[Rfam]
RNA sequence: GGGUAACGCCGCGCUCGUUGAACCGUGGAGAGGAAAGUCCGGACACUGCAGGGCAGGAUUCCAGGCAAGAAACGUUGUCGCGCCGGCGCGGCAGGCCGCAAGGCCACCGUCCGGAGUCGCUUCUGCUCAAGCCGGGGCGCUUCAGGUCAAGCUGAAGCGACGGACAGUGUCACAGAAAACAGGUAGCCUCCAGCAGGCCGCGAAAGCGUCCGGCGCGAGGUGAUAGUGAAAAGGUGGGGUAAGAGCCCACCGCGUUCGCCCGCGAGGGCGGCGGCACGAAAAACCCAAUCCGGUGCAAGACAAAAUAGGCGGCUGGACGGCCCGUCCCAAAGCCGCGGGUAUGUCGCAUCCCGCUUCGGUGGGAAGGCUGCACAAGCAGCCUAGAGAAAUGACAAUUAGGGGCGCCUCACGGCGCCCCACAGAAUCCGGCUUACGGCUCCGAAA
Number, nucleotide and partner (000 for none) at each position: 001g000002g000003g393004u392005a000006a000007c030008g000009c028010c027011g026012c025013g024014c000015u022016c000017g000018u000019u000020g000021a000022a015023c000024c013025g012026u011027g010028g009029a000030g007031a000032g000033g000034a000035a432036a431037g430038u000039c429040c428041g427042g426043a425044c295045a294046c293047u292048g000049c000050a000051g323052g322053g321054c320055a000056g291057g290058a289059u288060u287061c136062c135063a000064g133065g132066c000067a000068a000069g000070a000071a000072a000073c000074g000075u000076u000077g000078u000079c000080g000081c000082g000083c000084c000085g000086g000087c000088g000089c000090g000091g000092c000093a000094g000095g000096c000097c000098g000099c000100a000101a000102g000103g000104c000105c000106a000107c000108c000109g000110u000111c000112c000113g000114g000115a000116g000117u000118c000119g000120c000121u000122u000123c000124u000125g000126c000127u000128c000129a000130a000131g000132c065133c064134g000135g062136g061137g161138c159139g158140c157141u156142u155143c154144a153145g152146g000147u000148c000149a000150a000151g000152c145153u144154g143155a142156a141157g140158c139159g138160a000161c137162g286163g285164a000165c000166a000167g284168u283169g000170u279171c278172a000173c000174a000175g000176a000177a000178a000179a000180c000181a000182g000183g000184u225185a224186g221187c220188c219189u218190c217191c000192a000193g214194c213195a000196g000197g000198c000199c000200g000201c000202g000203a000204a000205a000206g000207c000208g000209u000210c000211c000212g000213g194214c193215g000216c000217g190218a189219g188220g187221u186222g000223a000224u185225a184226g000227u000228g000229a000230a000231a000232a000233g251234g250235u249236g248237g247238g246239g000240u000241a000242a000243g000244a000245g000246c238247c237248c236249a235250c234251c233252g275253c273254g272255u271256u000257c270258g269259c268260c267261c266262g000263c000264g000265a000266g261267g260268g259269c258270g257271g255272c254273g253274g000275c252276a000277c000278g171279a170280a000281a000282a000283a168284c167285c163286c162287a060288a059289u058290c057291c056292g047293g046294u045295g044296c000297a000298a000299g345300a344301c343302a342303a000304a000305a000306u000307a000308g000309g336310c335311g334312g333313c332314u331315g327316g326317a325318c324319g000320g054321c053322c052323c051324g318325u317326c316327c315328c000329a000330a000331a314332g313333c312334c311335g310336c309337g000338g000339g000340u000341a000342u302343g301344u300345c299346g000347c000348a000349u000350c000351c000352c000353g000354c000355u000356u000357c000358g000359g000360u000361g000362g000363g000364a000365a000366g000367g000368c000369u000370g000371c000372a000373c000374a000375a000376g000377c000378a000379g000380c000381c000382u000383a000384g000385a000386g000387a000388a000389a000390u000391g000392a004393c003394a000395a000396u000397u000398a000399g000400g000401g000402g000403c000404g000405c000406c000407u000408c000409a000410c000411g000412g000413c000414g000415c000416c000417c000418c000419a000420c000421a000422g000423a000424a000425u043426c042427c041428g040429g039430c037431u036432u035433a000434c000435g000436g000437c000438u000439c000440c000441g000442a000443a000444a000